[Rfam]
RNA sequence: UCUACAGUGCAUGUGUCUCCAGUGAAUAUGAGCUACUGGAGAGGCAGUUCUGUGUGAGU
Numbered sequence: 001u002c003u004a005c006a007g008u009g010c011a012u013g014u015g016u017c018u019c020c021a022g023u024g025a026a027u028a029u030g031a032g033c034u035a036c037u038g039g040a041g042a043g044g045c046a047g048u049u050c051u052g053u054g055u056g057a058g059u
Stems, first nucleotide, its partner, number of pairs: 001057002004053004009048002012046003016042008
Rfam assigns this 59-nucleotide RNA sequence from Salmo salar to the family "mir-139 microRNA precursor family". The source organism's lineage runs through Eukaryota, Eumetazoa, Euteleostomi, Actinopterygii and Salmo. The family has 29 seed sequences and 598 matches in Rfam 15.1. Its family is annotated with RISC complex and miRNA-mediated post-transcriptional gene silencing in the Gene Ontology. It is one of the family's seed sequences.